[Rfam]
RNA sequence: GUGAAAUAAAUCACAAGAUAACAUACACCCCUUUGUUUGAACGUGAACAUUUCUCCCAUCCCCUUUGUAAAAAACCCUUUCCUAAUUGAGGAAAGGGUUUUUU
Numbered sequence: 001g002u003g004a005a006a007u008a009a010a011u012c013a014c015a016a017g018a019u020a021a022c023a024u025a026c027a028c029c030c031c032u033u034u035g036u037u038u039g040a041a042c043g044u045g046a047a048c049a050u051u052u053c054u055c056c057c058a059u060c061c062c063c064u065u066u067g068u069a070a071a072a073a074a075c076c077c078u079u080u081c082c083u084a085a086u087u088g089a090g091g092a093a094a095g096g097g098u099u100u101u102u103u
Stems, first nucleotide, its partner, number of pairs: 003053005011046004020037004072100011
Dot-bracket structure: ..(((((...((((.....((((..........)))).....))))..)))))..................(((((((((((.......)))))))))))...